A member of the RNA family "SAM/SAH riboswitch aptamer" from Pacificibacter maritimus, 51 nucleotides long. Rfam links the family to the GO terms S-adenosylmethionine metabolic process and regulation of gene expression. Pairs were carried over by alignment from the consensus structure, which is taken from published work. The literature on the family includes a 2019 paper in Nucleic Acids Res by Weickhmann et al., "The structure of the SAM/SAH-binding riboswitch". It scores 45 bits against the family's covariance model.
[Rfam]
RNA sequence: CGGCUCGCACAACGGCUUCCUGACGUGUGAGCGACAUGAAAUAACGGAGCA
Dot-bracket structure: ...(((((((..(([[[.[[))..)))))))..............]]]]].
Numbered sequence: 001c002g003g004c005u006c007g008c009a010c011a012a013c014g015g016c017u018u019c020c021u022g023a024c025g026u027g028u029g030a031g032c033g034a035c036a037u038g039a040a041a042u043a044a045c046g047g048a049g050c051a
Stems, first nucleotide, its partner, number of pairs: 004031007013022002015050003019047002